RNA sequence: GGCCUAUGAUUUUAUAUUUGACCGUACCAUCUGAGAUUUGGUAAGCACCCUUCCCUCUGAUGUUAUUUCUUUAACUUAUGAGGCCU
Number, nucleotide and partner (000 for none) at each position: 001g085002g084003c083004c082005u000006a000007u000008g000009a000010u000011u000012u000013u000014a000015u000016a000017u000018u000019u000020g000021a000022c000023c000024g000025u000026a000027c000028c000029a000030u000031c000032u000033g000034a000035g000036a000037u000038u000039u000040g000041g000042u000043a000044a000045g000046c000047a000048c000049c000050c000051u000052u000053c000054c000055c000056u000057c000058u000059g000060a000061u000062g000063u000064u000065a000066u000067u000068u000069c000070u000071u000072u000073a000074a000075c000076u000077u000078a000079u000080g000081a000082g004083g003084c002085c001086u000

Shown here is an 86-nucleotide sequence from Dendrobium nobile, a member of the family "small nucleolar RNA snoR117". The literature on the family includes a 2009 paper in Nucleic Acids Res by Chen and Wu, "Mining small RNA sequencing data: a new approach to identify small nucleolar RNAs in Arabidopsis". Its family is annotated with nucleolus and RNA processing in the Gene Ontology. It scores 43 bits against the family's covariance model. Taxonomically the source falls in Dendrobium (Eukaryota, Streptophyta, Liliopsida, Dendrobieae). By type it is a C/D-box small nucleolar RNA. Pairs were carried over by alignment from the consensus structure, which was predicted with RNAalifold.